A member of the RNA family "Bacterial small subunit ribosomal RNA" from Flexistipes sinusarabici, 591 nucleotides of a longer RNA.
RNA sequence: UGACGGGGGCCCGCACAAGCGGUGGAGCACGUGGUUUAAUUCGAUGCUAACCGAAGAACCUUACCUGGUCUUGACAUCCUCCGGAGGGACUAGAGAUAGUUCUGUGCCCGCCUUUGGCGGGAGCGGAGAGACAGGUGCUGCAUGGCUGUCGUCAGCUCGUGCCGUGAGGUGUUGGGUUAAGUCCCGCAACGAGCGCAACCCCUAUUCAUAGUUGCCAUCGGUAAGGCCGGGCACUCUAUGGAUACUGCCCGUGAUAAACGGGAGGAAGGUGGGGACGACGUCAAGUCAUCAUGGCCUUUAUGACCAGGGCUACACACGUGCUACAAUGGUACGUACAGAGGGCAGCGAAGCCGCGAGGUGUAGCGAAUCCCUAAAAGCGUGCCUUAGUUCGGAUUGUAGUCUGCAAUUCGACUACAUGAAGGCGGAAUCGCUAGUAAUCGCAGGUCAGCAAAACUGCGGUGAAUACGUUCCCGGGCCUUGUACACACCGCCCGUCACACCACGGGAGUUGGUUGUACCUGAAGCCGGUGGCCCAACUGCGGAGGGAGCCGUUUAUGGUAUGACUGGCAACUGGGGUGAAGUCGUAACAAGG
Numbered sequence: 001u002g003a004c005g006g007g008g009g010c011c012c013g014c015a016c017a018a019g020c021g022g023u024g025g026a027g028c029a030c031g032u033g034g035u036u037u038a039a040u041u042c043g044a045u046g047c048u049a050a051c052c053g054a055a056g057a058a059c060c061u062u063a064c065c066u067g068g069u070c071u072u073g074a075c076a077u078c079c080u081c082c083g084g085a086g087g088g089a090c091u092a093g094a095g096a097u098a099g100u101u102c103u104g105u106g107c108c109c110g111c112c113u114u115u116g117g118c119g120g121g122a123g124c125g126g127a128g129a130g131a132c133a134g135g136u137g138c139u140g141c142a143u144g145g146c147u148g149u150c151g152u153c154a155g156c157u158c159g160u161g162c163c164g165u166g167a168g169g170u171g172u173u174g175g176g177u178u179a180a181g182u183c184c185c186g187c188a189a190c191g192a193g194c195g196c197a198a199c200c201c202c203u204a205u206u207c208a209u210a211g212u213u214g215c216c217a218u219c220g221g222u223a224a225g226g227c228c229g230g231g232c233a234c235u236c237u238a239u240g241g242a243u244a245c246u247g248c249c250c251g252u253g254a255u256a257a258a259c260g261g262g263a264g265g266a267a268g269g270u271g272g273g274g275a276c277g278a279c280g281u282c283a284a285g286u287c288a289u290c291a292u293g294g295c296c297u298u299u300a301u302g303a304c305c306a307g308g309g310c311u312a313c314a315c316a317c318g319u320g321c322u323a324c325a326a327u328g329g330u331a332c333g334u335a336c337a338g339a340g341g342g343c344a345g346c347g348a349a350g351c352c353g354c355g356a357g358g359u360g361u362a363g364c365g366a367a368u369c370c371c372u373a374a375a376a377g378c379g380u381g382c383c384u385u386a387g388u389u390c391g392g393a394u395u396g397u398a399g400u401c402u403g404c405a406a407u408u409c410g411a412c413u414a415c416a417u418g419a420a421g422g423c424g425g426a427a428u429c430g431c432u433a434g435u436a437a438u439c440g441c442a443g444g445u446c447a448g449c450a451a452a453a454c455u456g457c458g459g460u461g462a463a464u465a466c467g468u469u470c471c472c473g474g475g476c477c478u479u480g481u482a483c484a485c486a487c488c489g490c491c492c493g494u495c496a497c498a499c500c501a502c503g504g505g506a507g508u509u510g511g512u513u514g515u516a517c518c519u520g521a522a523g524c525c526g527g528u529g530g531c532c533c534a535a536c537u538g539c540g541g542a543g544g545g546a547g548c549c550g551u552u553u554a555u556g557g558u559a560u561g562a563c564u565g566g567c568a569a570c571u572g573g574g575g576u577g578a579a580g581u582c583g584u585a586a587c588a589a590g591g
Base pairs, nucleotide, nucleotide: 001484002483003481004480005479007478008477009476010475011474012473013472015468016467019431020430021429022428023427024324026322027321028320029319030318031317032316033315034313035312040055041054042053043052064308065307066306067305068304069303070302077131078130079128080127081126082125083124086103087102088101089100090099091098092097105123107121108120109119110118111117134297135296137295138294139293140292143291144290145286146285147284148282150280151279155194156193157192158191159190160189161170162169163168173186174185175184176183200274201273202272203271205242206241207240208239209238210237211236215231216230219229220228221227245265246264248262249261250260251259252258328383329382330381331380332379333378334377340371341370342369345364346363350359351358352357390421395416396415397414398413399412400411401410437460438459439458440457441456442455443454487590489587492583493582497577498576499575500574502572503571504570507567508566509565510564511563512562513561514560515559516558517557518556523552525550526549527548528547531545532544533543536541
The family has 99 seed sequences and 42,628 matches in Rfam 15.1.